Annotation: The family of this 61-nucleotide RNA sequence is "Cyano-1 RNA". Rfam's curators put it in the seed alignment.
RNA sequence: UCAUGUGUGAGGGAAAACUUCACGGGUUGGAAACAAGGACACACCCCCGUGAGGUUUCGGA
Numbered sequence: 001u002c003a004u005g006u007g008u009g010a011g012g013g014a015a016a017a018c019u020u021c022a023c024g025g026g027u028u029g030g031a032a033a034c035a036a037g038g039a040c041a042c043a044c045c046c047c048c049g050u051g052a053g054g055u056u057u058c059g060g061a
Base pairs, nucleotide, nucleotide: 015057016056017055018054019053022050023049024048025047026046028043029042